A member of the RNA family "c-di-GMP-I riboswitch aptamer" from Romboutsia hominis, 82 nucleotides long. The family's consensus secondary structure is taken from published work.
[Rfam]
RNA sequence: AAACAAAAUAGGCAAGCUAGAGAAAUCUAGUGACGCAAAACUAUAGGAGCUAAAGUAGAAACUAUGCUAGCCAGUUGCAAAA
Numbered sequence: 001a002a003a004c005a006a007a008a009u010a011g012g013c014a015a016g017c018u019a020g021a022g023a024a025a026u027c028u029a030g031u032g033a034c035g036c037a038a039a040a041c042u043a044u045a046g047g048a049g050c051u052a053a054a055g056u057a058g059a060a061a062c063u064a065u066g067c068u069a070g071c072c073a074g075u076u077g078c079a080a081a082a
Base pairs, nucleotide, nucleotide: 012036013035016031017030018029019028020027021026039076040075041074042073046072047071048068049067050066055062056061